small nucleolar RNA snoR21: a 145-nucleotide RNA sequence from Plasmodium falciparum. It is annotated as a C/D-box small nucleolar RNA. Its family is annotated with RNA processing and nucleolus in the Gene Ontology. On this family, see Chakrabarti et al., RNA 2007: "Structural RNAs of known and unknown function identified in malaria parasites by comparative genomics and RNA analysis". Lineage of the source: Eukaryota > Aconoidasida > Plasmodium > Laverania > Plasmodium falciparum.
[Rfam]
RNA sequence: AUUUUUAUGAUGAAAAGAUGACGAGUAUGAAAAAAUUAAGAAUAUUUGUUAUUAUUCUUAAAUAUAUGUUUUAUAUAUUUAUUAAUGUAUAAUUAAUAAUCUUAAUUUUUAUCAUCAUGAUUAUUUGAGGCAUUUGACUGAAAAA
Numbered sequence: 001a002u003u004u005u006u007a008u009g010a011u012g013a014a015a016a017g018a019u020g021a022c023g024a025g026u027a028u029g030a031a032a033a034a035a036u037u038a039a040g041a042a043u044a045u046u047u048g049u050u051a052u053u054a055u056u057c058u059u060a061a062a063u064a065u066a067u068g069u070u071u072u073a074u075a076u077a078u079u080u081a082u083u084a085a086u087g088u089a090u091a092a093u094u095a096a097u098a099a100u101c102u103u104a105a106u107u108u109u110u111a112u113c114a115u116c117a118u119g120a121u122u123a124u125u126u127g128a129g130g131c132a133u134u135u136g137a138c139u140g141a142a143a144a145a
Base pairs, nucleotide, nucleotide: 017134018133019132020131031110032109033108034107035106036105037104038103039102040080041079042078